[Rfam]
RNA sequence: AUGCCCAGUGAUUAUAAAAAGACGCGUUAUUCUGAGGAACACACCCUGCUACUAGUCUUUUCUCCUCUGUUUACUCUGCCUUUACUCUCGUCCACCUCUCCUGUCCAGCCUCCUCCUCCUCCUCUUCUUCUCCUCUUUUCUUCAAACUAGUGGCUGGGCCGCUGAUUGCGAUUAUGAGAUAUGAGGGCAU
Dot-bracket structure: ((((((............................((((............................................................))))..................................................................................))))))
Numbered sequence: 001a002u003g004c005c006c007a008g009u010g011a012u013u014a015u016a017a018a019a020a021g022a023c024g025c026g027u028u029a030u031u032c033u034g035a036g037g038a039a040c041a042c043a044c045c046c047u048g049c050u051a052c053u054a055g056u057c058u059u060u061u062c063u064c065c066u067c068u069g070u071u072u073a074c075u076c077u078g079c080c081u082u083u084a085c086u087c088u089c090g091u092c093c094a095c096c097u098c099u100c101c102u103g104u105c106c107a108g109c110c111u112c113c114u115c116c117u118c119c120u121c122c123u124c125u126u127c128u129u130c131u132c133c134u135c136u137u138u139u140c141u142u143c144a145a146a147c148u149a150g151u152g153g154c155u156g157g158g159c160c161g162c163u164g165a166u167u168g169c170g171a172u173u174a175u176g177a178g179a180u181a182u183g184a185g186g187g188c189a190u
Stems, first nucleotide, its partner, number of pairs: 001190006035102004